[Rfam]
RNA sequence: GGUGGAGGAUUCCAAAGGGAUCGCAUUGAUCCCCUUGUCCCCAAUUCCCAUUCGAAAAGAGAGGGCGUGGACGAUUCUGGAUCGUGCGAUCCCUUUGGAAUCUCCCAU
Numbered sequence: 001g002g003u004g005g006a007g008g009a010u011u012c013c014a015a016a017g018g019g020a021u022c023g024c025a026u027u028g029a030u031c032c033c034c035u036u037g038u039c040c041c042c043a044a045u046u047c048c049c050a051u052u053c054g055a056a057a058a059g060a061g062a063g064g065g066c067g068u069g070g071a072c073g074a075u076u077c078u079g080g081a082u083c084g085u086g087c088g089a090u091c092c093c094u095u096u097g098g099a100a101u102c103u104c105c106c107a108u
Stems, first nucleotide, its partner, number of pairs: 002108004008102014023087004028083005
The family of this 108-nucleotide RNA from Camphora micrantha is "mir-393 microRNA precursor family". Taxonomically the source falls in Camphora (Eukaryota, Viridiplantae, Mesangiospermae, Laurales). Pairs were carried over by alignment from the consensus structure. On this family, see Kruszka et al., J Plant Physiol 2012: "Role of microRNAs and other sRNAs of plants in their changing environments". Its family is annotated with RISC complex and miRNA-mediated post-transcriptional gene silencing in the Gene Ontology.